Shown here is an 80-nucleotide sequence from Flavobacterium sp. GT3R68, a member of the family "Flavo-1 RNA". The source organism's lineage runs through Bacteria, Pseudomonadati, Bacteroidota, Flavobacteriia and Flavobacterium. It scores 82 bits against the family's covariance model.

[Rfam]
RNA sequence: UUUUAGCCCCGAUUGCAGUGGAAAUCCUUUUUAUUUUUUCAUUAAAAAUAAAAAGAUUAAAACGGAAAGCGGGAAUAGCU
Dot-bracket structure: ........(((.((...((...((((..((((((((((.....)))))))))).))))...))...)).)))........